[Rfam]
The record is a 76-nucleotide RNA sequence from Ameiurus melas, which matches "mir-7563 microRNA precursor family" in Rfam. It scores 83 bits against the family's covariance model. Rfam links the family to the GO terms miRNA-mediated post-transcriptional gene silencing and RISC complex. The source organism's lineage runs through Eukaryota, Metazoa, Bilateria, Actinopterygii and Ameiurus.
RNA sequence: ACCACGUGCUUACCUGCUAUAUAGUAGGCGAUAUGCAUGUAUUUCAGCUACUAUAUAGUAGGUAAGUAUGUGGUUU
Numbered sequence: 001a002c003c004a005c006g007u008g009c010u011u012a013c014c015u016g017c018u019a020u021a022u023a024g025u026a027g028g029c030g031a032u033a034u035g036c037a038u039g040u041a042u043u044u045c046a047g048c049u050a051c052u053a054u055a056u057a058g059u060a061g062g063u064a065a066g067u068a069u070g071u072g073g074u075u076u
Base pairs, nucleotide, nucleotide: 001074002073003072004071005070006069007068008067009066010065011064012063013062014061015060017058018057019056020055021054022053023052024051025050026049027048030045031044033042034041035040